[Rfam]
RNA sequence: GUUUGGUUUUUUAUGCUCUGCAUAAAAAUGGGGCAUUGUCCAUGUGCCGACUUUGCAGAGGAACGGCGCAAACAAAGGCAAAUUCGACUGACGGAGGAACGGAGUCACCAAGAAUUUAAUGGACAAUGAACCAACAAAC
Numbered sequence: 001g002u003u004u005g006g007u008u009u010u011u012u013a014u015g016c017u018c019u020g021c022a023u024a025a026a027a028a029u030g031g032g033g034c035a036u037u038g039u040c041c042a043u044g045u046g047c048c049g050a051c052u053u054u055g056c057a058g059a060g061g062a063a064c065g066g067c068g069c070a071a072a073c074a075a076a077g078g079c080a081a082a083u084u085c086g087a088c089u090g091a092c093g094g095a096g097g098a099a100c101g102g103a104g105u106c107a108c109c110a111a112g113a114a115u116u117u118a119a120u121g122g123a124c125a126a127u128g129a130a131c132c133a134a135c136a137a138a139c
Stems, first nucleotide, its partner, number of pairs: 001139005006131002008028008034128010047078002052072002080117006089107004
Shown here is a 139-nucleotide RNA sequence from Enterococcus faecium, a member of the family "Enterococcus-1 RNA".
Lineage of the source: Bacteria > Bacillota > Enterococcaceae > Enterococcus > Enterococcus faecium.